A member of the RNA family "Histidine operon leader" from Volucribacter psittacicida, 130 nucleotides long. By type it is a cis-regulatory leader. A reference for the family is Kolter and Yanofsky (1982), "Attenuation in amino acid biosynthetic operons", Annu Rev Genet. Lineage of the source: Bacteria > Pseudomonadota > Pasteurellales > Pasteurellaceae > Volucribacter. At least 6 amino acid operons are known to be regulated by attenuation. In each a leader sequence of 150-200 bp is found upstream of the first gene in the operon. This leader sequence can assume two different secondary structures known as the terminator and the anti-terminator structure.
RNA sequence: UCAUCAUCACCAUCACACCUGAUUAUCUUUCAGGCGUUUGGUGUUGCUUGGAAGAUGGGACUUCCGAGCAAUGCGUAUAAAUUAACAAUUUUAGCACCCCUCGGAAGUGAACUUUCGAGGGGUUUUUGUU
Number, nucleotide and partner (000 for none) at each position: 001u000002c000003a000004u000005c000006a000007u000008c046009a045010c000011c000012a038013u000014c036015a000016c000017a000018c034019c033020u032021g031022a030023u000024u000025a000026u000027c000028u000029u000030u022031c021032a020033g019034g018035c000036g014037u000038u012039u000040g000041g000042u000043g000044u000045u009046g008047c068048u067049u066050g065051g064052a063053a062054g061055a000056u000057g000058g000059g000060a000061c054062u053063u052064c051065c050066g049067a048068g047069c000070a000071a000072u000073g000074c000075g000076u000077a000078u000079a000080a000081a000082u000083u000084a000085a000086c000087a000088a000089u000090u000091u000092u000093a126094g125095c000096a123097c122098c121099c120100c119101u118102c117103g116104g115105a114106a113107g112108u000109g000110a000111a000112c107113u106114u105115u104116c103117g102118a101119g100120g099121g098122g097123u096124u000125u094126u093127u000128g000129u000130u000